[Rfam]
Record summary:
This 64-nucleotide RNA from Myotis brandtii belongs to the Rfam family "mir-9242 microRNA precursor family". The organism belongs to Myotis, within Eukaryota.
RNA sequence: GGCCUCCCUCUGGGGGGCGAUCGAUUGUGGGGUUCCAAGAUCGAUCGCCCAGCAGAGGGAGGCC
Numbered sequence: 001g002g003c004c005u006c007c008c009u010c011u012g013g014g015g016g017g018c019g020a021u022c023g024a025u026u027g028u029g030g031g032g033u034u035c036c037a038a039g040a041u042c043g044a045u046c047g048c049c050c051a052g053c054a055g056a057g058g059g060a061g062g063c064c
Stems, first nucleotide, its partner, number of pairs: 001064012015050012028037003
Dot-bracket structure: ((((((((((((..((((((((((((.(((....))).))))))))))))..))))))))))))